[Rfam]
RNA sequence: CCCUUGCGCGGACGGGGCGACCGGUGGCGUGCUGGGGAUAUUGGACUACCACGGGGCAGGGUUGAGAGAGUCCAACACGGUGGCGAAGAGAGAGCCGUGAUCCGCACGUCUAUCGGAG
Numbered sequence: 001c002c003c004u005u006g007c008g009c010g011g012a013c014g015g016g017g018c019g020a021c022c023g024g025u026g027g028c029g030u031g032c033u034g035g036g037g038a039u040a041u042u043g044g045a046c047u048a049c050c051a052c053g054g055g056g057c058a059g060g061g062u063u064g065a066g067a068g069a070g071u072c073c074a075a076c077a078c079g080g081u082g083g084c085g086a087a088g089a090g091a092g093a094g095c096c097g098u099g100a101u102c103c104g105c106a107c108g109u110c111u112a113u114c115g116g117a118g
Stems, first nucleotide, its partner, number of pairs: 001037004006032005024052004042074006059103004076099006088114002091111003
The record is a 118-nucleotide sequence from Paraburkholderia sp. LEh10, which matches "Betaproteobacteria-1 RNA" in Rfam. The family's RNA type in Rfam is small RNA.